A member of the RNA family "Plastid-psbl-rps4 3UTR RNA" from Striga hermonthica, 53 nucleotides long. The match comes from Rfam's covariance-model search (74 bits). A reference for the family is Zhelyazkova et al. (2012), "Protein-mediated protection as the predominant mechanism for defining processed mRNA termini in land plant chloroplasts", Nucleic Acids Res. The base pairs follow the family's consensus structure, which was predicted with LocARNA. Rfam's curators write: Plastid psbl-rps4-psbC is a non-coding RNA (ncRNA) present in plastids. It is compose of two short stem-loops in tandem in the terminal 3 prime untranslate region (3UTR) mostly in psbl and rps4 seed plants genes. The family's RNA type in Rfam is cis-regulatory element.
RNA sequence: CGGAAAGAGAGGGAUUCGAACCCUCGGUACAAAUGACUCGUACACUGGAUUAG
Numbered sequence: 001c002g003g004a005a006a007g008a009g010a011g012g013g014a015u016u017c018g019a020a021c022c023c024u025c026g027g028u029a030c031a032a033a034u035g036a037c038u039c040g041u042a043c044a045c046u047g048g049a050u051u052a053g
Base pairs, nucleotide, nucleotide: 009025010024011023012022013021027043028042029041030040032038